[Rfam]
RNA: mir-87 microRNA precursor family
RNA sequence: CGCUCGCCGCCUGAACUUUCGACUCAAACCUCGUUCAUUUGUGUAGGUGAGCAAAGUUUCAGGUGUGCGAGCGG
Numbered sequence: 001c002g003c004u005c006g007c008c009g010c011c012u013g014a015a016c017u018u019u020c021g022a023c024u025c026a027a028a029c030c031u032c033g034u035u036c037a038u039u040u041g042u043g044u045a046g047g048u049g050a051g052c053a054a055a056g057u058u059u060c061a062g063g064u065g066u067g068c069g070a071g072c073g074g
Base pairs, nucleotide, nucleotide: 002072003071004070005069006068007067008065009064010063011062012061013060014059015057016056017055018054019053023051024050025049026048029047030046031045